[Rfam]
The family of this 77-nucleotide RNA sequence from Crocodylus porosus is "Mammalian CPEB3 ribozyme". Pairs were carried over by alignment from the consensus structure, which is taken from published work. The organism belongs to Crocodylus, within Eukaryota.
RNA sequence: GGUUGAAAGUUCGAGGCCACAGCAGAAGCGCUUAUGGGAAGGCCCUGUCAGAUUUCAAUGAAUCUGUGAAUUCUGCU
Numbered sequence: 001g002g003u004u005g006a007a008a009g010u011u012c013g014a015g016g017c018c019a020c021a022g023c024a025g026a027a028g029c030g031c032u033u034a035u036g037g038g039a040a041g042g043c044c045c046u047g048u049c050a051g052a053u054u055u056c057a058a059u060g061a062a063u064c065u066g067u068g069a070a071u072u073c074u075g076c077u
Stems, first nucleotide, its partner, number of pairs: 013045001015044004021077007049066007